[Rfam]
Ma3 gene ribosomal frameshift signal: a 60-nucleotide RNA from Nyctereutes procyonoides.
The match comes from Rfam's covariance-model search (54 bits).
Gene Ontology term of the family: translational frameshifting.
The organism belongs to Nyctereutes, within Eukaryota.
On this family, see Wills et al., J Biol Chem 2006: "A functional -1 ribosomal frameshift signal in the human paraneoplastic Ma3 gene".

RNA sequence: AGGAAACAACAAAGAGGCUGGAGCCAUGAGCUACCCCAAGCCCUAGGAAACAUAGGCUCU
Numbered sequence: 001a002g003g004a005a006a007c008a009a010c011a012a013a014g015a016g017g018c019u020g021g022a023g024c025c026a027u028g029a030g031c032u033a034c035c036c037c038a039a040g041c042c043c044u045a046g047g048a049a050a051c052a053u054a055g056g057c058u059c060u
Stems, first nucleotide, its partner, number of pairs: 014044001016042004021037001023035001028059005